[Rfam]
RNA sequence: CCCGCGGUUGGACAGAAAGACCCCGUGGAGCUUUACUGCAGCCUGGCACUGUGUUCUGGUGUGCUCUGUACAGGAUAGGUGGGAGGCAGAGAAGGGGAGGCGCCAGCUUCCCUGGAGCCGGCGGUGGGAUACCACUCUGGGUGCACUGGGGCACUAACCAGACACUCUGAACCGAGUGAUGGGACACUGCCAGGUGGGCAGUUUGACUGGGGCGGUCGCCUCCUAAAGGGUAACGGAGGCGCCCAAAGGUCACCUCAGCACGGAUGGAAAUCGUGCGGUAGGAGUGCAAAGGCGGUAAGGUGGCUUGACUGUGAGACCGACAGGUCGAGCAGGGACGAAAGUCGGGCUUAGUGAUCCGGCGGUAUCAAGUGGGAGAGCCGUCGCUCAACGGAUAAAAGUUACCCCGGGGAUAACAGGCUGAUCUCCCCCGAGAGUCCACAUCGACGGGGAGGUUUGGCACCUCGAUGUCGGCUCAUCGCAUCCUGGGGCUGAAGUAGGUCCCAAGGGUUGGGCUGUUCGCCCAUUAAAGCGGUACGUGAGCUGGGUUCAGAACGUCGUGAGACAGUUCGGUCCUUAUCCGCCGCGGGCGCA
Dot-bracket structure: ((((((((.(((.((......((((.(((((((.((((...(((((((..((((((((((((((((.(.........(((((..(((......((((((((....))))))))...)))............)))))).))))))))))))))))...(((..(((((......))))).))).....)))))))....))))..((((.....))))((((((...........))))))(.((....((((((((.((((((.......)))))).....))((......)).....))))))....((((..(((......)))..)))).(((....))).))..........(((((((.((........))))))))).....)......)))))..))))))........(((.((((((((...((.......))...)))))))..))))..........(((((((((((..((.((((((......))))))...)).(((((.....))))).....)))))..)..)))).).....(((((((....))).))))....))..)))))))))))....

A member of the RNA family "Bacterial large subunit ribosomal RNA" from Caldicellulosiruptor saccharolyticus, 591 nucleotides of a longer RNA. Taxonomically the source falls in Caldicellulosiruptor saccharolyticus (Bacteria, Bacillati, Bacillota, Caldicellulosiruptor). The sequence is in the family's curated seed alignment. Pairs were carried over by alignment from the consensus structure, which is taken from published work.